The record is a 177-nucleotide sequence from Pediococcus argentinicus, which matches "Lysine riboswitch aptamer" in Rfam. Taxonomically the source falls in Pediococcus (Bacteria, Bacillati, Bacilli, Lactobacillaceae).

RNA sequence: AUUAACUUAAGAGGUCGCAACCGACAAGAUUAGGUGGUGGAGUUCACACAGAACUUUGAAGCUAUCGAAAGGGGAAGUUGCCGAAGCGGUUAUUCGUGUAAAUAACUUAGCUGGGACGCUGCUCAAUAAGCAACGGACUGUCACAACGUUCACUCGUUGUGGGGCGCUUAACGAAUA
Dot-bracket structure: ......(((((.....(((((...(.......((((((......................))))))......)...)))))...((((((((((......)))))))..)))((..((.((((.....)))).))..)).(((((((........)))))))....)))))......